[Rfam]
RNA sequence: UGAAACCUUGUUUACACUACAGGGUCUUUCAUAAGACCCAGUGCCCAAUUUUUGCAGACCCUUGCUGGAGCAAGGGUA
Numbered sequence: 001u002g003a004a005a006c007c008u009u010g011u012u013u014a015c016a017c018u019a020c021a022g023g024g025u026c027u028u029u030c031a032u033a034a035g036a037c038c039c040a041g042u043g044c045c046c047a048a049u050u051u052u053u054g055c056a057g058a059c060c061c062u063u064g065c066u067g068g069a070g071c072a073a074g075g076g077u078a
Base pairs, nucleotide, nucleotide: 022039023038024037026035027034028033058077059076060075061074062073063072064071065070
RNA: SmY spliceosomal RNA
Organism: Nippostrongylus brasiliensis